Rfam assigns this 83-nucleotide sequence from Carya illinoinensis to the family "Small nucleolar RNA Z43". Lineage of the source: Eukaryota > Viridiplantae > eudicotyledons > Pentapetalae > Carya. The family has 7 seed sequences and 859 matches in Rfam 15.1. The family's RNA type in Rfam is C/D-box small nucleolar RNA. The family's consensus secondary structure was predicted with PFOLD.

RNA sequence: GGACUGUGAGGAUUUGUGUUAAUGGUCUCGUUCGUCGUAAUGGCAGGUUUGCCUUGCCGACCAUCCUGAUAUAAUCUGAGUCC
Numbered sequence: 001g002g003a004c005u006g007u008g009a010g011g012a013u014u015u016g017u018g019u020u021a022a023u024g025g026u027c028u029c030g031u032u033c034g035u036c037g038u039a040a041u042g043g044c045a046g047g048u049u050u051g052c053c054u055u056g057c058c059g060a061c062c063a064u065c066c067u068g069a070u071a072u073a074a075u076c077u078g079a080g081u082c083c
Base pairs, nucleotide, nucleotide: 001083002082003081004080045055046054
Dot-bracket structure: ((((........................................((.......))........................))))

The match comes from Rfam's covariance-model search (77 bits).